Shown here is a 584-nucleotide part of an RNA from Megachile rotundata, a member of the family "Eukaryotic small subunit ribosomal RNA". Rfam 15.1 lists 75,755 matches to the family in 2,556 species.
RNA sequence: GGUUAAAAGGCUCGUAGUUGAAUCUAUGUGUCGCUGUGUCGGUUCACCGCUUGCGGUGUUUAACUGGCAUAAUGCGAUACGUCCUACCAUUGGGUUUAGCUUCUCUUCGGAGUUGCGGCCCAAGUUAAGCAUCCCAUCGUGGUGCUCUUCGCUGAGUGUCGAGGUAGCUGGUAUGAUUACUUUGAACAAAUUAAAAUGCUUAAAGCAGGCUACCUUCGCCUUUGUAUUCUGUACAUGGAAUAAUGGAAUAGGACCUCGAUUCUAUUUUGUUGUUUUUUGGAGCCCCGAGAUAAUGGUUAUGUGGGAGUGUAUUGUAUUUUAUGUUUGAUUAGUUGUAGAAUUUUUGUAUAGUUUGACAAUCGUUGUGAAAUUGUAUAUAUGGCUGCAAGUGUAAAUGACGAUUUAUGAAAGGAACAAGUGGUUGCCAGCGUUUUGAAUAAGUGUUGUUGUUAAUUCAGUUUAGAAACGGAAGUUGAACGGUCCUGACGUGCGAAACACUGCGAAAUACGAAUUAUAAGAUUCUACAUUUUACGAUUUUACGACGUUCACAAGUUCAAUACUUAUUGUGUUUUUGUGUUCUUAUU
Numbered sequence: 001g002g003u004u005a006a007a008a009g010g011c012u013c014g015u016a017g018u019u020g021a022a023u024c025u026a027u028g029u030g031u032c033g034c035u036g037u038g039u040c041g042g043u044u045c046a047c048c049g050c051u052u053g054c055g056g057u058g059u060u061u062a063a064c065u066g067g068c069a070u071a072a073u074g075c076g077a078u079a080c081g082u083c084c085u086a087c088c089a090u091u092g093g094g095u096u097u098a099g100c101u102u103c104u105c106u107u108c109g110g111a112g113u114u115g116c117g118g119c120c121c122a123a124g125u126u127a128a129g130c131a132u133c134c135c136a137u138c139g140u141g142g143u144g145c146u147c148u149u150c151g152c153u154g155a156g157u158g159u160c161g162a163g164g165u166a167g168c169u170g171g172u173a174u175g176a177u178u179a180c181u182u183u184g185a186a187c188a189a190a191u192u193a194a195a196a197u198g199c200u201u202a203a204a205g206c207a208g209g210c211u212a213c214c215u216u217c218g219c220c221u222u223u224g225u226a227u228u229c230u231g232u233a234c235a236u237g238g239a240a241u242a243a244u245g246g247a248a249u250a251g252g253a254c255c256u257c258g259a260u261u262c263u264a265u266u267u268u269g270u271u272g273u274u275u276u277u278u279g280g281a282g283c284c285c286c287g288a289g290a291u292a293a294u295g296g297u298u299a300u301g302u303g304g305g306a307g308u309g310u311a312u313u314g315u316a317u318u319u320u321a322u323g324u325u326u327g328a329u330u331a332g333u334u335g336u337a338g339a340a341u342u343u344u345u346g347u348a349u350a351g352u353u354u355g356a357c358a359a360u361c362g363u364u365g366u367g368a369a370a371u372u373g374u375a376u377a378u379a380u381g382g383c384u385g386c387a388a389g390u391g392u393a394a395a396u397g398a399c400g401a402u403u404u405a406u407g408a409a410a411g412g413a414a415c416a417a418g419u420g421g422u423u424g425c426c427a428g429c430g431u432u433u434u435g436a437a438u439a440a441g442u443g444u445u446g447u448u449g450u451u452a453a454u455u456c457a458g459u460u461u462a463g464a465a466a467c468g469g470a471a472g473u474u475g476a477a478c479g480g481u482c483c484u485g486a487c488g489u490g491c492g493a494a495a496c497a498c499u500g501c502g503a504a505a506u507a508c509g510a511a512u513u514a515u516a517a518g519a520u521u522c523u524a525c526a527u528u529u530u531a532c533g534a535u536u537u538u539a540c541g542a543c544g545u546u547c548a549c550a551a552g553u554u555c556a557a558u559a560c561u562u563a564u565u566g567u568g569u570u571u572u573u574g575u576g577u578u579c580u581u582a583u584u
Stems, first nucleotide, its partner, number of pairs: 001580002008578001010461001013458001017454003359448001361446002363443001366436001368434003372416002376409001378407005386397002424429001467492002472487004500577003503570002507553002512542002515539005521534002557564002
The family is grouped with related families in Rfam's "SSU clan".